Notes
Small nucleolar RNA SNORA57: a 148-nucleotide sequence from Myotis lucifugus. A search with the family's covariance model found it, with a score of 88 bits. Rfam 15.1 lists 1,736 matches to the family in 530 species. Pairs were carried over by alignment from the consensus structure, which was predicted with PFOLD. U99 belongs to the H/ACA class of snoRNAs which are thought to guide the sites of modification of uridines to pseudouridines, the target for this family is unknown. Rfam classes the family as an H/ACA-box small nucleolar RNA.

Nucleotides: 148
Base pairs, nucleotide, nucleotide: 002056003055004054005053015044016043017042018041020039022037024035025034082140085137087135101122102121103120105118106117107116
Number, partner (000 for none) and nucleotide at each position: 001000a002056u003055u004054c005053u006000u007000c008000u009000u010000c011000u012000u013000g014000g015044u016043g017042g018041g019000a020039g021000g022037c023000c024035a025034g026000a027000c028000c029000g030000u031000g032000g033000c034025c035024u036000u037022g038000u039020u040000c041018c042017c043016c044015g045000u046000a047000a048000u049000g050000c051000a052000a053005a054004g055003a056002a057000g058000c059000a060000g061000a062000g063000u064000g065000a066000a067000a068000g069000g070000u071000c072000u073000c074000u075000g076000g077000c078000c079000c080000c081000u082140c083000u084000a085137u086000a087135u088000c089000a090000u091000g092000u093000c094000u095000u096000u097000g098000g099000u100000a101122u102121u103120g104000a105118u106117g107116g108000u109000u110000u111000c112000u113000a114000g115000u116107c117106u118105a119000c120103c121102a122101g123000u124000u125000c126000u127000a128000u129000c130000c131000u132000c133000a134000a135087g136000c137085a138000c139000u140082g141000g142000g143000a144000c145000a146000c147000u148000g